[Rfam]
RNA sequence: AUGGGGAAGUGGAGAAACAACACUUGCUAAAAGAACUUCCCUCUCUUCUUUUGAAGUUUUUUUAGCAAGAGUUGUUUUCCCUCUUCUCAA
Numbered sequence: 001a002u003g004g005g006g007a008a009g010u011g012g013a014g015a016a017a018c019a020a021c022a023c024u025u026g027c028u029a030a031a032a033g034a035a036c037u038u039c040c041c042u043c044u045c046u047u048c049u050u051u052u053g054a055a056g057u058u059u060u061u062u063u064a065g066c067a068a069g070a071g072u073u074g075u076u077u078u079c080c081c082u083c084u085u086c087u088c089a090a
Base pairs, nucleotide, nucleotide: 002089003088004087005086007085008084009083011081012080014078015077016076017075018074019073020072021071023069024068025067026066027065028064029063030062031061032060033059034058035057037055038054039053
RNA: MIR6024 microRNA precursor family